[Rfam]
RNA sequence: GUCCAGCUGCGGGGAGAAAGUGUCGUUCUCUAACCCUAAUGCGAGGGCAAUGCGGGCCCUUUGUUUAAAGUCCCGUUGUCGCGCGAAGCGGGAGCCCUCGCUGUUUUCUUGGCUAACUUUCAGCGAUGGUGAAAGGGCCUAGCAAAGGUUGGGAAGCGUGAUUUAUUGUUGGUGGGCAGAGAGAAAAAAGUUUCAGCCGCGGCCUCCUCCCCGGCGGCCCAGGACCCCCUGUUGCAACGUGCGAAAUGGCGGCCUCGGCCCCCACCUUUGCUCGCAUGCCCAGCCGAGUAGGCCGCGGUCAGCGCCGGCUUCCACGCCAGUGUGGGGCUUGAUGCUGUCGCGAAGAGUUCGUCUCUGUCAGCCUGGCAGGGGGUGCUACGCAGGGUCGGGGUACGGGGGACAGGGAGAUUAAAUAGCUUGACCAGACGCUAUAACCUGUACUGCAUCUCCCAGAGCUGUGGGACCUGCAAAUCUGCGCUGGUCAUACAUUU
Numbered sequence: 001g002u003c004c005a006g007c008u009g010c011g012g013g014g015a016g017a018a019a020g021u022g023u024c025g026u027u028c029u030c031u032a033a034c035c036c037u038a039a040u041g042c043g044a045g046g047g048c049a050a051u052g053c054g055g056g057c058c059c060u061u062u063g064u065u066u067a068a069a070g071u072c073c074c075g076u077u078g079u080c081g082c083g084c085g086a087a088g089c090g091g092g093a094g095c096c097c098u099c100g101c102u103g104u105u106u107u108c109u110u111g112g113c114u115a116a117c118u119u120u121c122a123g124c125g126a127u128g129g130u131g132a133a134a135g136g137g138c139c140u141a142g143c144a145a146a147g148g149u150u151g152g153g154a155a156g157c158g159u160g161a162u163u164u165a166u167u168g169u170u171g172g173u174g175g176g177c178a179g180a181g182a183g184a185a186a187a188a189a190g191u192u193u194c195a196g197c198c199g200c201g202g203c204c205u206c207c208u209c210c211c212c213g214g215c216g217g218c219c220c221a222g223g224a225c226c227c228c229c230u231g232u233u234g235c236a237a238c239g240u241g242c243g244a245a246a247u248g249g250c251g252g253c254c255u256c257g258g259c260c261c262c263c264a265c266c267u268u269u270g271c272u273c274g275c276a277u278g279c280c281c282a283g284c285c286g287a288g289u290a291g292g293c294c295g296c297g298g299u300c301a302g303c304g305c306c307g308g309c310u311u312c313c314a315c316g317c318c319a320g321u322g323u324g325g326g327g328c329u330u331g332a333u334g335c336u337g338u339c340g341c342g343a344a345g346a347g348u349u350c351g352u353c354u355c356u357g358u359c360a361g362c363c364u365g366g367c368a369g370g371g372g373g374u375g376c377u378a379c380g381c382a383g384g385g386u387c388g389g390g391g392u393a394c395g396g397g398g399g400a401c402a403g404g405g406a407g408a409u410u411a412a413a414u415a416g417c418u419u420g421a422c423c424a425g426a427c428g429c430u431a432u433a434a435c436c437u438g439u440a441c442u443g444c445a446u447c448u449c450c451c452a453g454a455g456c457u458g459u460g461g462g463a464c465c466u467g468c469a470a471a472u473c474u475g476c477g478c479u480g481g482u483c484a485u486a487c488a489u490u491u
Stems, first nucleotide, its partner, number of pairs: 003223002006218005011212002014209003057137005095129002098126006112197003115192003118188003228404006253391009275375003279371003283367004294342005300337004306331003344356004420483004425478001427477003442469004448463004